Bacterial small signal recognition particle RNA: a 90-nucleotide sequence from Allorhizobium borbori. Gene Ontology terms of the family: SRP-dependent cotranslational protein targeting to membrane, signal sequence recognition and signal recognition particle, plasma membrane targeting. From the family's description: The signal recognition particle (SRP) is a universally conserved ribonucleoprotein involved in the co-translational targeting of proteins to membranes. Rfam classes the family as a non-coding RNA gene.
RNA sequence: GGAGGCUGGUGGCGGACGUCGCUACUCGCCAACCGGGUCAGGUCCGGAAGGAAGCAGCCCUAACGAGCGGGCACGGGUCGCCUCGCCAGU
Numbered sequence: 001g002g003a004g005g006c007u008g009g010u011g012g013c014g015g016a017c018g019u020c021g022c023u024a025c026u027c028g029c030c031a032a033c034c035g036g037g038u039c040a041g042g043u044c045c046g047g048a049a050g051g052a053a054g055c056a057g058c059c060c061u062a063a064c065g066a067g068c069g070g071g072c073a074c075g076g077g078u079c080g081c082c083u084c085g086c087c088a089g090u
Base pairs, nucleotide, nucleotide: 005090006089007088008087009084011082012081013080014079017075018074019073022070025067026066027065028064035060036059037058038057043052044051045050